[Rfam]
RNA: mir-16 microRNA precursor family
Organism: Chelydra serpentina
RNA sequence: UGCCGCCAGCAGCAGCGCAGAAGUAAGGGUGGGAUGGUGUGGUAUUACCACCCUUACUUCUGUGCUGCUGCUGGCAGGG
Numbered sequence: 001u002g003c004c005g006c007c008a009g010c011a012g013c014a015g016c017g018c019a020g021a022a023g024u025a026a027g028g029g030u031g032g033g034a035u036g037g038u039g040u041g042g043u044a045u046u047a048c049c050a051c052c053c054u055u056a057c058u059u060c061u062g063u064g065c066u067g068c069u070g071c072u073g074g075c076a077g078g079g
Stems, first nucleotide, its partner, number of pairs: 001079001003077001005075003011069008020059001022058008